[Rfam]
RNA sequence: UUAUAAAAAGGGCAAACUUACUGAAAGGUAGGGACGCAAAGCUCGAAGUCUAAAGUUAUUUUAGCUAUGACAGUUCGGCUGCUAUG
Dot-bracket structure: ...........((...((((((....))))))...))..((((.((((((....((((...))))...)))..)))))))......
Numbered sequence: 001u002u003a004u005a006a007a008a009a010g011g012g013c014a015a016a017c018u019u020a021c022u023g024a025a026a027g028g029u030a031g032g033g034a035c036g037c038a039a040a041g042c043u044c045g046a047a048g049u050c051u052a053a054a055g056u057u058a059u060u061u062u063a064g065c066u067a068u069g070a071c072a073g074u075u076c077g078g079c080u081g082c083u084a085u086g
Stems, first nucleotide, its partner, number of pairs: 012037002017032006040080004045076003048071003055065004